[Rfam]
RNA sequence: CCUCGAGGACGACCUCGAGGACGACCUUGAGGACUCCCUUGAGGACGACCUUG
Numbered sequence: 001c002c003u004c005g006a007g008g009a010c011g012a013c014c015u016c017g018a019g020g021a022c023g024a025c026c027u028u029g030a031g032g033a034c035u036c037c038c039u040u041g042a043g044g045a046c047g048a049c050c051u052u053g
Stems, first nucleotide, its partner, number of pairs: 001020008040053005
Guanidine-II riboswitch aptamer (mini-ykkC): a 53-nucleotide sequence from Liparis tanakae. Its family is annotated with regulation of gene expression in the Gene Ontology. A search with the family's covariance model found it, with a score of 37 bits.